[Rfam]
RNA sequence: UGAAUCCAUCGACCGAGUCACUCACGGCAGGAGCGGGGGACCCAGGUAAGCCGCCGGACCGGGCGCGUACGCCCCGUGGUGUACGCCGCAUCGGACCGGCUCGGGGUGAAGCCGUGCCCUCGGGCGCGGCCGGGCACCUCCCCGCCCGAACCCGACAGCUCACCUCGCAGGCGGCGGAGAGGAACA
Number, nucleotide and partner (000 for none) at each position: 001u170002g000003a000004a000005u032006c031007c030008a000009u000010c000011g000012a000013c000014c000015g000016a000017g000018u000019c000020a000021c000022u000023c000024a000025c000026g000027g000028c000029a000030g007031g006032a005033g168034c167035g166036g165037g164038g163039g000040a000041c000042c000043c103044a000045g000046g000047u000048a000049a000050g000051c000052c000053g000054c000055c000056g000057g000058a000059c000060c000061g000062g000063g000064c000065g000066c000067g000068u000069a000070c000071g000072c000073c000074c000075c000076g000077u000078g000079g000080u000081g000082u000083a000084c000085g000086c000087c000088g000089c000090a000091u000092c000093g000094g000095a000096c000097c000098g000099g000100c000101u000102c000103g043104g153105g152106g151107u000108g000109a000110a000111g000112c129113c128114g127115u126116g000117c000118c000119c000120u000121c000122g000123g000124g000125c000126g115127c114128g113129g112130c000131c000132g147133g146134g145135c144136a000137c000138c000139u000140c000141c000142c000143c000144g135145c134146c133147c132148g000149a000150a000151c106152c105153c104154g000155a000156c000157a000158g000159c000160u000161c000162a000163c038164c037165u036166c035167g034168c033169a000170g001171g000172c000173g000174g000175c000176g000177g000178a000179g000180a000181g000182g000183a000184a000185c000186a000
RNA: c-di-AMP riboswitch aptamer (ydaO/yuaA leader)
Organism: Streptomyces sp. F-3